[Rfam]
RNA sequence: GAUCCGCACCACCCUCAUUCUCGUAAGAUUGCGCACACGCGAGACGGUCUAGGAACCGUCCGGCGAAAGCCAUCGUGUGCGCAGACCAAAGGGCCCUCAGAGGCCCUUUUUUGUUGCCUUCGA
Numbered sequence: 001g002a003u004c005c006g007c008a009c010c011a012c013c014c015u016c017a018u019u020c021u022c023g024u025a026a027g028a029u030u031g032c033g034c035a036c037a038c039g040c041g042a043g044a045c046g047g048u049c050u051a052g053g054a055a056c057c058g059u060c061c062g063g064c065g066a067a068a069g070c071c072a073u074c075g076u077g078u079g080c081g082c083a084g085a086c087c088a089a090a091g092g093g094c095c096c097u098c099a100g101a102g103g104c105c106c107u108u109u110u111u112u113g114u115u116g117c118c119u120u121c122g123a
Stems, first nucleotide, its partner, number of pairs: 026119002029116001030083010043060005063070002088108001090107006
The record is a 123-nucleotide sequence from Aurantimonas sp. Leaf443, which matches "Rhizobiales sRNA Atu_C8" in Rfam. Rfam classes the family as a small RNA.